[Rfam]
RNA sequence: AAUAAGUGAUGAAAAAAGUUUCGGUCCCAGAUGAUGGCCAGUGAUAACAACAUUUUUCUGAUGUU
Numbered sequence: 001a002a003u004a005a006g007u008g009a010u011g012a013a014a015a016a017a018g019u020u021u022c023g024g025u026c027c028c029a030g031a032u033g034a035u036g037g038c039c040a041g042u043g044a045u046a047a048c049a050a051c052a053u054u055u056u057u058c059u060g061a062u063g064u065u
Stems, first nucleotide, its partner, number of pairs: 001065004
A member of the RNA family "Small nucleolar RNA SNORD73", 65 nucleotides long. A reference for the family is Rebane et al. (1998), "A novel snoRNA (U73) is encoded within the introns of the human and mouse ribosomal protein S3a genes", Gene. Rfam 15.1 lists 769 matches to the family in 586 species. The sequence is in the family's curated seed alignment.